[Rfam]
Nucleotides: 071
Stems, first nucleotide, its partner, number of pairs: 003069001005067002009063008018054003023049008
Number, partner (000 for none) and nucleotide at each position: 001000a002000u003069c004000a005067u006066u007000a008000a009063g010062u011061g012060u013059u014058c015057a016056c017000a018054g019053c020052g021000g022000a023049c024048c025047u026046u027045g028044a029043u030042u031000u032000a033000a034000u035000g036000u037000c038000a039000u040000a041000c042030a043029a044028u045027u046026a047025a048024g049023g050000c051000a052020c053019g054018c055000g056016g057015u058014g059013a060012a061011u062010g063009c064000c065000a066006a067005g068000a069003g070000c071000g
About this RNA
A member of the RNA family "mir-124 microRNA precursor family" from Acipenser ruthenus, 71 nucleotides long. The organism belongs to Acipenser, within Eukaryota. A search with the family's covariance model found it, with a score of 78 bits. Rfam links the family to the GO terms miRNA-mediated post-transcriptional gene silencing and RISC complex. A reference for the family is Lim et al. (2003), "The microRNAs of Caenorhabditis elegans", Genes Dev.